This 76-nucleotide sequence belongs to the Rfam family "dfrA-dnaX RNA". It is annotated as a small RNA.
[Rfam]
RNA sequence: AUGCCCUAUGAUAAAGCUAUUACUAUUUCAUCAAAACAACAAUAUAACAAUAAUCAAAAUGAAGUUUUGAUAUAAU
Numbered sequence: 001a002u003g004c005c006c007u008a009u010g011a012u013a014a015a016g017c018u019a020u021u022a023c024u025a026u027u028u029c030a031u032c033a034a035a036a037c038a039a040c041a042a043u044a045u046a047a048c049a050a051u052a053a054u055c056a057a058a059a060u061g062a063a064g065u066u067u068u069g070a071u072a073u074a075a076u
Stems, first nucleotide, its partner, number of pairs: 030071008